This 68-nucleotide sequence belongs to the Rfam family "L13-Bacteroidia ribosomal protein leader". It is one of the family's seed sequences. On this family, see Eckert and Weinberg, BMC Microbiol 2020: "Discovery of 20 novel ribosomal leader candidates in bacteria and archaea". The family's RNA type in Rfam is cis-regulatory leader.
Nucleotides: 068
Stems, first nucleotide, its partner, number of pairs: 001017005028062005034056008
Number, partner (000 for none) and nucleotide at each position: 001017g002016g003015g004014g005013c006000a007000a008000a009000a010000a011000c012000a013005g014004c015003c016002c017001c018000a019000a020000a021000g022000u023000g024000c025000g026000u027000g028062u029061g030060a031059a032058u033000a034056g035055u036054g037053u038052g039051c040050u041049u042000a043000u044000u045000g046000g047000c048000c049041a050040g051039g052038u053037a054036c055035a056034c057000g058032g059031u060030u061029c062028g063000u064000g065000a066000a067000u068000c